[Rfam]
RNA sequence: GCCCGGCUCCGGGUCUCGGCCCGUACAGUCCGGCCGGCCAUGCUGGCGGGGCUGGGGCUGGGGCCGGGGCCGAGC
Numbered sequence: 001g002c003c004c005g006g007c008u009c010c011g012g013g014u015c016u017c018g019g020c021c022c023g024u025a026c027a028g029u030c031c032g033g034c035c036g037g038c039c040a041u042g043c044u045g046g047c048g049g050g051g052c053u054g055g056g057g058c059u060g061g062g063g064c065c066g067g068g069g070c071c072g073a074g075c
Base pairs, nucleotide, nucleotide: 005070007068008067009066012064014062015061017060018059019058020057021056022055026054027053028052029051030050031049033047034046035045036044037043038042
The family of this 75-nucleotide RNA sequence from Pan troglodytes is "mir-762 microRNA precursor family". Gene Ontology terms of the family: RISC complex, miRNA-mediated post-transcriptional gene silencing and cellular response to amino acid stimulus.